Shown here is a 105-nucleotide RNA from Miscanthus lutarioriparius, a member of the family "Small nucleolar RNA Z194". NCBI's taxonomy places the organism under Eukaryota, Embryophyta, Andropogonodae, Saccharinae, Miscanthus. Its family is annotated with RNA processing and nucleolus in the Gene Ontology. The literature on the family includes a 2003 paper in Nucleic Acids Res by Chen et al., "The high diversity of snoRNAs in plants: identification and comparative study of 120 snoRNA genes from Oryza sativa". Rfam classes the family as a C/D-box small nucleolar RNA.

RNA sequence: GGCAGAUUGAUGAUGAAACAAUUACCCCAAGCGCUUUAUUCCACUGAUACCAGUGAUGGAAAGCUAUGUUACAAUAGCUUUUGUGGUUUUCAAUCUGAAAUUGCU
Number, nucleotide and partner (000 for none) at each position: 001g000002g000003c000004a105005g104006a000007u000008u000009g000010a000011u000012g000013a000014u000015g000016a000017a000018a000019c000020a000021a000022u000023u000024a000025c000026c000027c000028c000029a000030a045031g044032c000033g042034c000035u000036u000037u000038a000039u000040u000041c000042c033043a000044c031045u030046g000047a000048u000049a000050c000051c000052a000053g000054u000055g000056a000057u000058g000059g082060a081061a080062a079063g078064c077065u076066a075067u074068g000069u000070u000071a000072c000073a000074a067075u066076a065077g064078c063079u062080u061081u060082u059083g000084u000085g000086g000087u000088u000089u000090u000091c000092a000093a000094u000095c000096u000097g000098a000099a000100a000101u000102u000103g000104c005105u004